PreQ1-III (pre queuosine) riboswitch aptamer: a 96-nucleotide RNA sequence from uncultured Faecalibacterium sp.
[Rfam]
RNA sequence: GAGCAACUUAGGAUUUUAGGCUCCACCGCGGCUUGCUGCGGUGCAAACCCCGCAAGCCUGGCGGUCUUGCGCGCGGUCAAAAUCUAUCCGCCGGAG
Dot-bracket structure: [[[[......((((((...]]]]((((((((....))))))))...((((((((((.........)))))).).)))..))))))...........
The literature on the family includes a 2014 paper in Chem Biol by McCown et al., "Structural, functional, and taxonomic diversity of three preQ1 riboswitch classes". NCBI's taxonomy places the organism under Bacteria, Bacillati, Bacillota, Oscillospiraceae, Faecalibacterium. Rfam's curators put it in the seed alignment.